[Rfam]
RNA sequence: GAAUUUUUGAUUAACGCCUGAAGUUAUUCAGGCCAACUGGAAG
Numbered sequence: 001g002a003a004u005u006u007u008u009g010a011u012u013a014a015c016g017c018c019u020g021a022a023g024u025u026a027u028u029c030a031g032g033c034c035a036a037c038u039g040g041a042a043g
Base pairs, nucleotide, nucleotide: 016033017032018031019030020029021028022027
RNA: nuoG RNA